[Rfam]
RNA: mir-15 microRNA precursor family
Organism: Synaphobranchus kaupii
RNA sequence: GGCCAUCUUGCUGUAGCAGCACGUAAAUAUUGGAGUUUGACCACUGCUGAUGUCUCCAGUAUUGAUCGUGCUGCUGAAGGAAGGUUGGC
Numbered sequence: 001g002g003c004c005a006u007c008u009u010g011c012u013g014u015a016g017c018a019g020c021a022c023g024u025a026a027a028u029a030u031u032g033g034a035g036u037u038u039g040a041c042c043a044c045u046g047c048u049g050a051u052g053u054c055u056c057c058a059g060u061a062u063u064g065a066u067c068g069u070g071c072u073g074c075u076g077a078a079g080g081a082a083g084g085u086u087g088g089c
Base pairs, nucleotide, nucleotide: 001089003087005085006084014076015075016074017073018072019071020070021069022068023067024065026063027062028061029060030059031058032057033056034055035054